RNA sequence: UUAAGCAGAAGAGGAGCACUGCCCAGGCAGGUAUUUUGUGGAGCCUCAACUCCAAGACAAAAUAUUCAGGGGGAGUAGUGCCGAGACGAUCCAUAGUUGUGGAUUUGGAUUGUCGGGUGAAUGGGCUGAAUCCCGUCAACUGUCAUCAGUGCUAGCUGGUGAAGAGCUUCUGAGGUC
Numbered sequence: 001u002u003a004a005g006c007a008g009a010a011g012a013g014g015a016g017c018a019c020u021g022c023c024c025a026g027g028c029a030g031g032u033a034u035u036u037u038g039u040g041g042a043g044c045c046u047c048a049a050c051u052c053c054a055a056g057a058c059a060a061a062a063u064a065u066u067c068a069g070g071g072g073g074a075g076u077a078g079u080g081c082c083g084a085g086a087c088g089a090u091c092c093a094u095a096g097u098u099g100u101g102g103a104u105u106u107g108g109a110u111u112g113u114c115g116g117g118u119g120a121a122u123g124g125g126c127u128g129a130a131u132c133c134c135g136u137c138a139a140c141u142g143u144c145a146u147c148a149g150u151g152c153u154a155g156c157u158g159g160u161g162a163a164g165a166g167c168u169u170c171u172g173a174g175g176u177c
Stems, first nucleotide, its partner, number of pairs: 006172006016081007024073001030066008085114009095104001115141002118138001121136005143162007
Dot-bracket structure: .....((((((....(((((((.(.....((((((((.....................))))))))......).)))))))...(((((((((.(........).)))))))))((.(..(((((......))))).).)).(((((((......)))))))....)))))).....
RNA: Lysine riboswitch aptamer